[Rfam]
RNA sequence: UUUCCGUCACAACGGCUUCCUGGCGUGGCGGUUUAACCCAACGGAGCA
Numbered sequence: 001u002u003u004c005c006g007u008c009a010c011a012a013c014g015g016c017u018u019c020c021u022g023g024c025g026u027g028g029c030g031g032u033u034u035a036a037c038c039c040a041a042c043g044g045a046g047c048a
Stems, first nucleotide, its partner, number of pairs: 004031007013022002015047003019044002
RNA: SAM/SAH riboswitch aptamer